Small nucleolar RNA SNORD73: a 68-nucleotide RNA from Mesocricetus auratus. It scores 74 bits against the family's covariance model. The base pairs follow the family's consensus structure, which was predicted with PFOLD. Rfam classes the family as a C/D-box small nucleolar RNA. The source organism's lineage runs through Eukaryota, Tetrapoda, Theria, Boreoeutheria and Mesocricetus. Rfam links the family to the GO terms RNA processing and nucleolus.
RNA sequence: AAUACAUGAUGAGAAAAUGUUUCGGUCCCAGUUGAUGUAUGCUGAUGAAGUAACAUUUUUCUGAUGUU
Number, nucleotide and partner (000 for none) at each position: 001a068002a067003u066004a065005c000006a000007u000008g000009a000010u000011g000012a000013g000014a000015a000016a000017a000018u000019g000020u000021u000022u000023c000024g000025g000026u000027c000028c000029c000030a000031g000032u000033u000034g000035a000036u000037g000038u000039a000040u000041g000042c000043u000044g000045a000046u000047g000048a000049a000050g000051u000052a000053a000054c000055a000056u000057u000058u000059u000060u000061c000062u000063g000064a000065u004066g003067u002068u001